[Rfam]
RNA sequence: AGUUCCUUUAAAACUGUCCAGAGAGACAGGCAAGGAGAAGAACAGGUCAAGCCCUUUAUAAGGGUAUAUUUUGUGAGGUCUCCUUGUAGGUAAGGAGACCUUUUUUCU
Numbered sequence: 001a002g003u004u005c006c007u008u009u010a011a012a013a014c015u016g017u018c019c020a021g022a023g024a025g026a027c028a029g030g031c032a033a034g035g036a037g038a039a040g041a042a043c044a045g046g047u048c049a050a051g052c053c054c055u056u057u058a059u060a061a062g063g064g065u066a067u068a069u070u071u072u073g074u075g076a077g078g079u080c081u082c083c084u085u086g087u088a089g090g091u092a093a094g095g096a097g098a099c100c101u102u103u104u105u106u107c108u
Stems, first nucleotide, its partner, number of pairs: 003037006014029005042074005049067001051065005075102012
Dot-bracket structure: ..((((((.....(((((......)))))..))))))....(((((..(.(((((.....))))).)..)))))((((((((((((....))))))))))))......
RNA: PyrR binding site